[Rfam]
RNA sequence: AUUCAGGGGAGGGGGUUCCUCAGCCUGGAUUGUGAGAGGGCACAGGCCAGGCCAAGGGACCCUACCAGUGCAUG
Numbered sequence: 001a002u003u004c005a006g007g008g009g010a011g012g013g014g015g016u017u018c019c020u021c022a023g024c025c026u027g028g029a030u031u032g033u034g035a036g037a038g039g040g041c042a043c044a045g046g047c048c049a050g051g052c053c054a055a056g057g058g059a060c061c062c063u064a065c066c067a068g069u070g071c072a073u074g
Stems, first nucleotide, its partner, number of pairs: 003072001006069001009066001012063009023052003027048002030045005
Dot-bracket structure: ..(..(..(..(((((((((..(((.((.(((((......))))).)).)))..)))))))))..)..)..)..